[Rfam]
RNA sequence: UUACUGGAUGCUUUAGCUAUUGAACUGUUCUGUCAAUGAGACAGAGAGUGACAAAACAGUUCAAUAGCUAAAGCGUCCAGUAAC
Numbered sequence: 001u002u003a004c005u006g007g008a009u010g011c012u013u014u015a016g017c018u019a020u021u022g023a024a025c026u027g028u029u030c031u032g033u034c035a036a037u038g039a040g041a042c043a044g045a046g047a048g049u050g051a052c053a054a055a056a057c058a059g060u061u062c063a064a065u066a067g068c069u070a071a072a073g074c075g076u077c078c079a080g081u082a083a084c
Stems, first nucleotide, its partner, number of pairs: 001083006011073018029045006
RNA: mir-8517 microRNA precursor family
Organism: Plutella xylostella